This 139-nucleotide RNA sequence from Saccharothrix sp. ALI-22-I belongs to the Rfam family "Group II catalytic intron D1-D4-4". NCBI's taxonomy places the organism under Bacteria, Bacillati, Actinomycetes, Pseudonocardiaceae, Saccharothrix. Gene Ontology term of the family: Group II intron splicing.
[Rfam]
RNA sequence: UUGCCAGUGUGAGUCCGGUCCGGGUAGCUGCCAGGAGGCCCGGUAGCAGACUGGCGGUCUCGUCUGGAAACGGACGGGGUCGAAGCCCAGUGUCGAAAGCCCUCAUGGGGGAGCGACGACGGUUCCAUGCGUUGUGGGA
Numbered sequence: 001u002u003g004c005c006a007g008u009g010u011g012a013g014u015c016c017g018g019u020c021c022g023g024g025u026a027g028c029u030g031c032c033a034g035g036a037g038g039c040c041c042g043g044u045a046g047c048a049g050a051c052u053g054g055c056g057g058u059c060u061c062g063u064c065u066g067g068a069a070a071c072g073g074a075c076g077g078g079g080u081c082g083a084a085g086c087c088c089a090g091u092g093u094c095g096a097a098a099g100c101c102c103u104c105a106u107g108g109g110g111g112a113g114c115g116a117c118g119a120c121g122g123u124u125c126c127a128u129g130c131g132u133u134g135u136g137g138g139a
Stems, first nucleotide, its partner, number of pairs: 020043005050091005055082006064073001066071001101110001103109001113132003
Dot-bracket structure: ...................(((((..............)))))......(((((((((((...(.(....).)...))))))....))))).........(.(.....))..(((..............))).......